The family of this 313-nucleotide RNA from Methanopyrus kandleri is "Archaeal signal recognition particle RNA". Its family is annotated with SRP-dependent cotranslational protein targeting to membrane, signal sequence recognition and signal recognition particle, plasma membrane targeting in the Gene Ontology. The family is grouped with related families in Rfam's "SRP clan". The source organism's lineage runs through Archaea, Methanobacteriota, Methanopyrales, Methanopyraceae and Methanopyrus kandleri. It is one of the family's seed sequences. The family's RNA type in Rfam is non-coding RNA gene.
RNA sequence: GGGCUAGGCCGGCGGGCUGGCGGUCCGCUGUAACCCGAAAUCCGCCUCAUGCGGGGGCCGAAGCCGAGGGGGCGGCCCGGUCCCCCGGAGUACCGGCCCCCCGGACCCGACCGAUGACCCUCCGGCCCCCCGGGGGCCCGGGGUGGCGGGGCCGCCGCCGGAGGGCGGCGCGCCACCGCCUUUGCCGGGGCACCGGGUCAGGCCCGAGAGGGAGCAGCCCACCCCGGACCCGCGGCCGCUCGGGGGUCGCCGGAGGCAGGUCGGCCGGGGGAGUACCGGGCUCCGGGGGCCGGGUCCACCCCUCGGCGCGCCC
Numbered sequence: 001g002g003g004c005u006a007g008g009c010c011g012g013c014g015g016g017c018u019g020g021c022g023g024u025c026c027g028c029u030g031u032a033a034c035c036c037g038a039a040a041u042c043c044g045c046c047u048c049a050u051g052c053g054g055g056g057g058c059c060g061a062a063g064c065c066g067a068g069g070g071g072g073c074g075g076c077c078c079g080g081u082c083c084c085c086c087g088g089a090g091u092a093c094c095g096g097c098c099c100c101c102c103g104g105a106c107c108c109g110a111c112c113g114a115u116g117a118c119c120c121u122c123c124g125g126c127c128c129c130c131c132g133g134g135g136g137c138c139c140g141g142g143g144u145g146g147c148g149g150g151g152c153c154g155c156c157g158c159c160g161g162a163g164g165g166c167g168g169c170g171c172g173c174c175a176c177c178g179c180c181u182u183u184g185c186c187g188g189g190g191c192a193c194c195g196g197g198u199c200a201g202g203c204c205c206g207a208g209a210g211g212g213a214g215c216a217g218c219c220c221a222c223c224c225c226g227g228a229c230c231c232g233c234g235g236c237c238g239c240u241c242g243g244g245g246g247u248c249g250c251c252g253g254a255g256g257c258a259g260g261u262c263g264g265c266c267g268g269g270g271g272a273g274u275a276c277c278g279g280g281c282u283c284c285g286g287g288g289g290c291c292g293g294g295u296c297c298a299c300c301c302c303u304c305g306g307c308g309c310g311c312c313c
Stems, first nucleotide, its partner, number of pairs: 001313004007059004011029007034055004039050001063307009074296004079290001085286007093279004100271003107264006119256007127246008135237004141231002143182001145180005150174003153170007185227006195220004203212003